[Rfam]
RNA sequence: ACCGAAUAAUAACUCCGAGCUGACAGGCCUAAGGGUGUUCAACCUAUGGUCUCCAGCCAUGACUAUGUAUAGUUAAGGGUAUCCCAGGAAACUGCGAUGCCUCCCGGUGGAAAGGAGAAAAACAAAUUUUAGU
Numbered sequence: 001a002c003c004g005a006a007u008a009a010u011a012a013c014u015c016c017g018a019g020c021u022g023a024c025a026g027g028c029c030u031a032a033g034g035g036u037g038u039u040c041a042a043c044c045u046a047u048g049g050u051c052u053c054c055a056g057c058c059a060u061g062a063c064u065a066u067g068u069a070u071a072g073u074u075a076a077g078g079g080u081a082u083c084c085c086a087g088g089a090a091a092c093u094g095c096g097a098u099g100c101c102u103c104c105c106g107g108u109g110g111a112a113a114g115g116a117g118a119a120a121a122a123c124a125a126a127u128u129u130u131a132g133u
Stems, first nucleotide, its partner, number of pairs: 013117004019057004025052005033045004059074001063072001077102007085094003103110002
RNA: Molybdenum/Tungsten riboswitch aptamer (Moco RNA motif)
Organism: Thermincola carboxydiphila